[Rfam]
RNA sequence: UCAGUUUAUGUAAACAUCCUACACUCAGCUGUAAUAUGCGGAUUGGCUGGGAGGUGGGUGUUUACUUCAGCUGA
Numbered sequence: 001u002c003a004g005u006u007u008a009u010g011u012a013a014a015c016a017u018c019c020u021a022c023a024c025u026c027a028g029c030u031g032u033a034a035u036a037u038g039c040g041g042a043u044u045g046g047c048u049g050g051g052a053g054g055u056g057g058g059u060g061u062u063u064a065c066u067u068c069a070g071c072u073g074a
Stems, first nucleotide, its partner, number of pairs: 002073005008067001010065010022053001024051007